[Rfam]
The record is a 102-nucleotide RNA from Virgibacillus salinus, which matches "SAM riboswitch aptamer (S box leader)" in Rfam. The literature on the family includes a 1998 paper in Mol Microbiol by Grundy and Henkin, "The S box regulon: a new global transcription termination control system for methionine and cysteine biosynthesis genes in gram-positive bacteria". It scores 62 bits against the family's covariance model. From the family's description: The SAM riboswitch is found upstream of a number of genes which code for proteins involved in methionine or cysteine biosynthesis in Gram-positive bacteria. The family's consensus secondary structure is taken from published work.
RNA sequence: UAGCUAUCAAGAGUGAUCGAGAGAACUGGCUCAACGACGUCACAGCAACCUGCAAAUGUAAGGUGCUCCCACCAGCAAAGCCCAUGCUUUGAGUGAUAAAUC
Numbered sequence: 001u002a003g004c005u006a007u008c009a010a011g012a013g014u015g016a017u018c019g020a021g022a023g024a025a026c027u028g029g030c031u032c033a034a035c036g037a038c039g040u041c042a043c044a045g046c047a048a049c050c051u052g053c054a055a056a057u058g059u060a061a062g063g064u065g066c067u068c069c070c071a072c073c074a075g076c077a078a079a080g081c082c083c084a085u086g087c088u089u090u091g092a093g094u095g096a097u098a099a100a101u102c
Stems, first nucleotide, its partner, number of pairs: 002101001005098004013043005021032003026075004044067004049063002051060003071094001076091006